A member of the RNA family "Bacterial large subunit ribosomal RNA" from Paremcibacter congregatus, 248 nucleotides of a longer RNA. Its Rfam clan is "LSU clan". Taxonomically the source falls in Paremcibacter (Bacteria, Alphaproteobacteria, Emcibacterales, Emcibacteraceae). The family's consensus secondary structure is taken from published work.
[Rfam]
RNA sequence: GGAGAAUUGAGAGGAUCUGUCCCUAGUACGAGAGGACCGGGAUGGACAUACCUCUGGUGGACCUGUUGUUGCGCCAGCAGCAUUGCAGGGUAGCUAUGUAUGGACGGGAUAACCGCUGAAAGCAUCUAAGCGGGAAACCCACCUCGAGAUAAGUUCUCCCUAAAGAGCCGUGGAAGACCACCACGUUGAUAGGCUGGAUGUGGAAGCGCGGUAACGCGUGAAGCUGACCAGUACUAAUUACUCAAUCG
Numbered sequence: 001g002g003a004g005a006a007u008u009g010a011g012a013g014g015a016u017c018u019g020u021c022c023c024u025a026g027u028a029c030g031a032g033a034g035g036a037c038c039g040g041g042a043u044g045g046a047c048a049u050a051c052c053u054c055u056g057g058u059g060g061a062c063c064u065g066u067u068g069u070u071g072c073g074c075c076a077g078c079a080g081c082a083u084u085g086c087a088g089g090g091u092a093g094c095u096a097u098g099u100a101u102g103g104a105c106g107g108g109a110u111a112a113c114c115g116c117u118g119a120a121a122g123c124a125u126c127u128a129a130g131c132g133g134g135a136a137a138c139c140c141a142c143c144u145c146g147a148g149a150u151a152a153g154u155u156c157u158c159c160c161u162a163a164a165g166a167g168c169c170g171u172g173g174a175a176g177a178c179c180a181c182c183a184c185g186u187u188g189a190u191a192g193g194c195u196g197g198a199u200g201u202g203g204a205a206g207c208g209c210g211g212u213a214a215c216g217c218g219u220g221a222a223g224c225u226g227a228c229c230a231g232u233a234c235u236a237a238u239u240a241c242u243c244a245a246u247c248g
Stems, first nucleotide, its partner, number of pairs: 001159008011145004017045007047102005055096003062089005067082006106140003113133005165243003169185005190236003193232005200224001206219005